[Rfam]
RNA sequence: GUUGCUUCAUAAUGGUGAUCUCCUAAUAAUUUACAAUGAAGGAUGAUUCAAGUUUCCGGGGCAUAGAUUGAUAUACUUAUUACCAGUACUAAACAGCAUUGUGUAUAUAUGUUGCACCUUGUUACCUGUCUUCUGGUAUAUUC
Numbered sequence: 001g002u003u004g005c006u007u008c009a010u011a012a013u014g015g016u017g018a019u020c021u022c023c024u025a026a027u028a029a030u031u032u033a034c035a036a037u038g039a040a041g042g043a044u045g046a047u048u049c050a051a052g053u054u055u056c057c058g059g060g061g062c063a064u065a066g067a068u069u070g071a072u073a074u075a076c077u078u079a080u081u082a083c084c085a086g087u088a089c090u091a092a093a094c095a096g097c098a099u100u101g102u103g104u105a106u107a108u109a110u111g112u113u114g115c116a117c118c119u120u121g122u123u124a125c126c127u128g129u130c131u132u133c134u135g136g137u138a139u140a141u142u143c
Stems, first nucleotide, its partner, number of pairs: 003063006016050003019046002021043004082137005088131001095123003101117003

Overview:
small nucleolar RNA snoR137: a 143-nucleotide sequence from Coptis chinensis. The base pairs follow the family's consensus structure, which was predicted with RNAalifold. The source organism's lineage runs through Eukaryota, Streptophyta, Embryophyta, Magnoliopsida and Coptis. By type it is an H/ACA-box small nucleolar RNA.